[Rfam]
RNA sequence: GAGCUGUGAUGAGUAUUACUCUUACGUGAUGAUUUGGGUUAUCACAACCUUCUUAUCUUCGGAUGUGAAGUGUGAUCCGCGCUGCUGAGCUC
Numbered sequence: 001g002a003g004c005u006g007u008g009a010u011g012a013g014u015a016u017u018a019c020u021c022u023u024a025c026g027u028g029a030u031g032a033u034u035u036g037g038g039u040u041a042u043c044a045c046a047a048c049c050u051u052c053u054u055a056u057c058u059u060c061g062g063a064u065g066u067g068a069a070g071u072g073u074g075a076u077c078c079g080c081g082c083u084g085c086u087g088a089g090c091u092c
Stems, first nucleotide, its partner, number of pairs: 001092004